Rfam assigns this 600-nucleotide part of an RNA from Oceanithermus profundus to the family "Bacterial large subunit ribosomal RNA".
Pairs were carried over by alignment from the consensus structure, which is taken from published work.
Its family is annotated with structural constituent of ribosome and ribosome in the Gene Ontology.
[Rfam]
RNA sequence: AACUGGCCGUCAAGAUGCGGCCUACCCGUGGCAGGACGAAAAGACCCCGUGGAGCUUUACUGUAGCCUGGCGUUGGUCUUUGGACACGUCUGUGUAGGAUAGGUGGGAGCCUGCGAACCCGGCCCGCCAGGGUCGGGGGAGGCGCCGGUGAAAUACCACCCUGACGUGUUCGGAGGCCUAACCGGCAUCGGCCGGGACAGCGCUUGGUGGGCAGUUUGACUGGGGCGGUCGCCUCCUAAAGCGUAACGGAGGCGCCCAAAGGUUCCCUCAGCGCGGACGGAAACCGCGCGGAGAGCGCAAGGGUACAAGGGAGCUUGACUGCGAGGCCUGCAAGCCGAGCAGGGACGAAAGUCGGGCCUAGUGAACCGGUGGUUCCGUGUGGAAGGGCCAUCGAUCAACGGAUAAAAGUUACCCCGGGGAUAACAGGCUGAUCUCCCCCGAGCGUCCACAGCGGCGGGGAGGUUUGGCACCUCGAUGUCGGCUCGUCGCAUCCUGGGGCUGAAGAAGGUCCCAAGGGUUGGGCUGUUCGCCCAUUAAAGCGGCACGCGAGCUGGGUUCAGAACGUCGUGAGACAGUUCGGUCUCUAUCCGCCACGGGCGC
Numbered sequence: 001a002a003c004u005g006g007c008c009g010u011c012a013a014g015a016u017g018c019g020g021c022c023u024a025c026c027c028g029u030g031g032c033a034g035g036a037c038g039a040a041a042a043g044a045c046c047c048c049g050u051g052g053a054g055c056u057u058u059a060c061u062g063u064a065g066c067c068u069g070g071c072g073u074u075g076g077u078c079u080u081u082g083g084a085c086a087c088g089u090c091u092g093u094g095u096a097g098g099a100u101a102g103g104u105g106g107g108a109g110c111c112u113g114c115g116a117a118c119c120c121g122g123c124c125c126g127c128c129a130g131g132g133u134c135g136g137g138g139g140a141g142g143c144g145c146c147g148g149u150g151a152a153a154u155a156c157c158a159c160c161c162u163g164a165c166g167u168g169u170u171c172g173g174a175g176g177c178c179u180a181a182c183c184g185g186c187a188u189c190g191g192c193c194g195g196g197a198c199a200g201c202g203c204u205u206g207g208u209g210g211g212c213a214g215u216u217u218g219a220c221u222g223g224g225g226c227g228g229u230c231g232c233c234u235c236c237u238a239a240a241g242c243g244u245a246a247c248g249g250a251g252g253c254g255c256c257c258a259a260a261g262g263u264u265c266c267c268u269c270a271g272c273g274c275g276g277a278c279g280g281a282a283a284c285c286g287c288g289c290g291g292a293g294a295g296c297g298c299a300a301g302g303g304u305a306c307a308a309g310g311g312a313g314c315u316u317g318a319c320u321g322c323g324a325g326g327c328c329u330g331c332a333a334g335c336c337g338a339g340c341a342g343g344g345a346c347g348a349a350a351g352u353c354g355g356g357c358c359u360a361g362u363g364a365a366c367c368g369g370u371g372g373u374u375c376c377g378u379g380u381g382g383a384a385g386g387g388c389c390a391u392c393g394a395u396c397a398a399c400g401g402a403u404a405a406a407a408g409u410u411a412c413c414c415c416g417g418g419g420a421u422a423a424c425a426g427g428c429u430g431a432u433c434u435c436c437c438c439c440g441a442g443c444g445u446c447c448a449c450a451g452c453g454g455c456g457g458g459g460a461g462g463u464u465u466g467g468c469a470c471c472u473c474g475a476u477g478u479c480g481g482c483u484c485g486u487c488g489c490a491u492c493c494u495g496g497g498g499c500u501g502a503a504g505a506a507g508g509u510c511c512c513a514a515g516g517g518u519u520g521g522g523c524u525g526u527u528c529g530c531c532c533a534u535u536a537a538a539g540c541g542g543c544a545c546g547c548g549a550g551c552u553g554g555g556u557u558c559a560g561a562a563c564g565u566c567g568u569g570a571g572a573c574a575g576u577u578c579g580g581u582c583u584c585u586a587u588c589c590g591c592c593a594c595g596g597g598c599g600c
Base pairs, nucleotide, nucleotide: 005022006021007020008019009018025597026596027595028594029593030592031591032590034589035588036587038584039583046418047417048416049415051414052413053410054409055408056407057406059215060214061213062212066207067206069204070203071202072201075178076177077176078175079174080173081172082171083170084169085168086167087166088165089164090163092161102160103159104158105157106156109143110142111141118137119136120135121134122133123132124131125130182195183194184193218230219229220228221227231253232252233251234250235249236248254399256356257355262314263313264312265311266310267309268294269293271289272288273287274286275285276284295304296303319342320341321340322339325336326335327334344353345352346351367393368392369391370390371389372388373387375386376385427468428467429466431465432462433461434460435459436458437457438456442452443451479554480552481551482550483549484546485543486542487541488540489539492517493516495512496511497510498509499508500507519533520532521531522530523529560578561577562576563575564573565572566571
The match comes from Rfam's covariance-model search (2756 bits).